[Rfam]
RNA sequence: UCCGUGCGACAGGGGAGCGCCACAAGGGCGCUGAGAGUGCGAAAGCAGACCCUCGAACCUGAUCCGGUUAGCACCGGCGAAGGGAGUCGAGCUCUCCCCGCC
Numbered sequence: 001u002c003c004g005u006g007c008g009a010c011a012g013g014g015g016a017g018c019g020c021c022a023c024a025a026g027g028g029c030g031c032u033g034a035g036a037g038u039g040c041g042a043a044a045g046c047a048g049a050c051c052c053u054c055g056a057a058c059c060u061g062a063u064c065c066g067g068u069u070a071g072c073a074c075c076g077g078c079g080a081a082g083g084g085a086g087u088c089g090a091g092c093u094c095u096c097c098c099c100g101c102c
Stems, first nucleotide, its partner, number of pairs: 007089004011053004017031005038047003058083003064077004
RNA: TPP riboswitch aptamer (THI element)